The record is a 75-nucleotide RNA sequence from Streptomyces sp. PAN_FS17, which matches "ASpks TB sRNA" in Rfam. The base pairs follow the family's consensus structure, which is taken from published work. On this family, see Arnvig and Young, Mol Microbiol 2009: "Identification of small RNAs in Mycobacterium tuberculosis". NCBI's taxonomy places the organism under Bacteria, Actinomycetes, Kitasatosporales, Streptomycetaceae, Streptomyces.
RNA sequence: CUUCACGGAGCCGAGCCAGACGGGGUUCGUCUUCUCCCGUCCCUUGCCGUAGGUGGCGAGCAGGGCCUGGGCCUC
Numbered sequence: 001c002u003u004c005a006c007g008g009a010g011c012c013g014a015g016c017c018a019g020a021c022g023g024g025g026u027u028c029g030u031c032u033u034c035u036c037c038c039g040u041c042c043c044u045u046g047c048c049g050u051a052g053g054u055g056g057c058g059a060g061c062a063g064g065g066c067c068u069g070g071g072c073c074u075c
Stems, first nucleotide, its partner, number of pairs: 014026001016024002031071003038065001043060003047056003